Rfam assigns this 118-nucleotide sequence from Auanema sp. JU1783 to the family "U5 spliceosomal RNA". The source organism's lineage runs through Eukaryota, Eumetazoa, Bilateria, Rhabditina and Auanema. U5 RNA is a component of both types of known spliceosome. The precise function of this molecule is unknown, though it is known that the 5' loop is required for splice site selection and p220 binding, and that both the 3' stem-loop and the Sm site are important for Sm protein binding and cap methylation. Pairs were carried over by alignment from the consensus structure, which is taken from published work.
[Rfam]
RNA sequence: UAUCUCUGGUUCCUUUGCAGUAUUGCGUGAAAAUCUUUCGCCUUUUACUAAAGAUUUCCGUGCAUAGGGACGCAUAUGAGUGUUUUCUGUUUUUGGAUUCCCUUCGAAAGAACGGGAA
Dot-bracket structure: ...(((..((((((.((((...........((((((((...........))))))))...)))).))))))......)))..................((((.(.......).)))).